[Rfam]
RNA: Bacterial RNase P class A
Organism: Wolbachia endosymbiont of Pentalonia nigronervosa
RNA sequence: CUAGGUGCAAUAAGUAGCUGCUGUUAUGCGUAAGCAUGACAGAGGAAAGUCCGGGCUCCAAGGAAAAGUAGUGACGGAUAAUACCCGCCGGGGGUAACCCUAGUUAUAGGGCUACAGAAAAUUACCGCCUAAUGUUAAAUUAGGUAAGGGUGAAAAGGUGUGGUAAGAGCACACCAUAACAAUGGCAACAUUGGUAGUUCGAGUAACCAGCACUAGGAGCAAGAUUAAAUAAGAGUAGGCUUUAUGUUUUCCUCAUAUCUACUCGGGUAAAUCGCACGAAAUAAAUGGUAACAUUUAUUCCAGAUAAAUAGCUACAUAAACAGAACUCGGCUUAUAUUUCACCUAGGCAC
Numbered sequence: 001c002u003a004g005g006u007g008c009a010a011u012a013a014g015u016a017g018c019u020g021c022u023g024u025u026a027u028g029c030g031u032a033a034g035c036a037u038g039a040c041a042g043a044g045g046a047a048a049g050u051c052c053g054g055g056c057u058c059c060a061a062g063g064a065a066a067a068g069u070a071g072u073g074a075c076g077g078a079u080a081a082u083a084c085c086c087g088c089c090g091g092g093g094g095u096a097a098c099c100c101u102a103g104u105u106a107u108a109g110g111g112c113u114a115c116a117g118a119a120a121a122u123u124a125c126c127g128c129c130u131a132a133u134g135u136u137a138a139a140u141u142a143g144g145u146a147a148g149g150g151u152g153a154a155a156a157g158g159u160g161u162g163g164u165a166a167g168a169g170c171a172c173a174c175c176a177u178a179a180c181a182a183u184g185g186c187a188a189c190a191u192u193g194g195u196a197g198u199u200c201g202a203g204u205a206a207c208c209a210g211c212a213c214u215a216g217g218a219g220c221a222a223g224a225u226u227a228a229a230u231a232a233g234a235g236u237a238g239g240c241u242u243u244a245u246g247u248u249u250u251c252c253u254c255a256u257a258u259c260u261a262c263u264c265g266g267g268u269a270a271a272u273c274g275c276a277c278g279a280a281a282u283a284a285a286u287g288g289u290a291a292c293a294u295u296u297a298u299u300c301c302a303g304a305u306a307a308a309u310a311g312c313u314a315c316a317u318a319a320a321c322a323g324a325a326c327u328c329g330g331c332u333u334a335u336a337u338u339u340c341a342c343c344u345a346g347g348c349a350c
Stems, first nucleotide, its partner, number of pairs: 001346007009339002012335001014315006021042009047333003051330005056219004063252001065250002069215005075087003089103001090101004104210002109208002111204003125149002127145007157175006176198001177196002180193005223273004233264006243257004280299008